Overview
A member of the RNA family "MIR1520 microRNA precursor family" from Glycine max, 118 nucleotides long. Clan: MIR1520 microRNA precursor clan. The match comes from Rfam's covariance-model search (85 bits). Its family is annotated with miRNA-mediated post-transcriptional gene silencing and RISC complex in the Gene Ontology.
[Rfam]
RNA sequence: UUUUUAUGGGAUGAUAAGAGUUACGUGUCAUGUUUUCAUUGAAUGUCAACUUCAUAAAAAUAAAAUGAAUUGUUGUUUGUUUUACAAAUCAAAACAUCACACGUAAUAAUGAUUAUCC
Numbered sequence: 001u002u003u004u005u006a007u008g009g010g011a012u013g014a015u016a017a018g019a020g021u022u023a024c025g026u027g028u029c030a031u032g033u034u035u036u037c038a039u040u041g042a043a044u045g046u047c048a049a050c051u052u053c054a055u056a057a058a059a060a061u062a063a064a065a066u067g068a069a070u071u072g073u074u075g076u077u078u079g080u081u082u083u084a085c086a087a088a089u090c091a092a093a094a095c096a097u098c099a100c101a102c103g104u105a106a107u108a109a110u111g112a113u114u115a116u117c118c
Stems, first nucleotide, its partner, number of pairs: 020107004025102002030097002033094004038089003